[Rfam]
Rfam assigns this 165-nucleotide sequence from Streptomyces benahoarensis to the family "c-di-AMP riboswitch aptamer (ydaO/yuaA leader)". A search with the family's covariance model found it, with a score of 43 bits.
RNA sequence: GUCAGGUCGACGCGGACGCAUCGGCAGGAGCGGAGGACCCGAGCACGACGGGGCCACGGCCGUCAGGCCGACGGGCCCCUUGGGGUGAAGCCGUACGCACGGCCGGGCAACUUCGCCUGCCCGAACCCGACAGGUCUUCCUUCGCAGGCGGCUGACGAAGGGUUU
Numbered sequence: 001g002u003c004a005g006g007u008c009g010a011c012g013c014g015g016a017c018g019c020a021u022c023g024g025c026a027g028g029a030g031c032g033g034a035g036g037a038c039c040c041g042a043g044c045a046c047g048a049c050g051g052g053g054c055c056a057c058g059g060c061c062g063u064c065a066g067g068c069c070g071a072c073g074g075g076c077c078c079c080u081u082g083g084g085g086u087g088a089a090g091c092c093g094u095a096c097g098c099a100c101g102g103c104c105g106g107g108c109a110a111c112u113u114c115g116c117c118u119g120c121c122c123g124a125a126c127c128c129g130a131c132a133g134g135u136c137u138u139c140c141u142u143c144g145c146a147g148g149c150g151g152c153u154g155a156c157g158a159a160g161g162g163u164u165u
Stems, first nucleotide, its partner, number of pairs: 002029002030145006040082004083128003091102004105122004